[Rfam]
RNA sequence: CCUCGUGUGACUGAUGAUAGCACAGCUGCUGAGACUGUGAUUGCUAGUCUCAAAGUAAACGCUCUGACACGCUGCAC
Numbered sequence: 001c002c003u004c005g006u007g008u009g010a011c012u013g014a015u016g017a018u019a020g021c022a023c024a025g026c027u028g029c030u031g032a033g034a035c036u037g038u039g040a041u042u043g044c045u046a047g048u049c050u051c052a053a054a055g056u057a058a059a060c061g062c063u064c065u066g067a068c069a070c071g072c073u074g075c076a077c
Stems, first nucleotide, its partner, number of pairs: 005072005011020003029047002032045002
Dot-bracket structure: ....(((((.(((....)))........((.((..........))))....................))))).....

The record is a 77-nucleotide RNA sequence from Sciurus vulgaris, which matches "Small nucleolar RNA U105B" in Rfam. The match comes from Rfam's covariance-model search (69 bits). Rfam 15.1 lists 132 matches to the family in 131 species. By type it is a C/D-box small nucleolar RNA.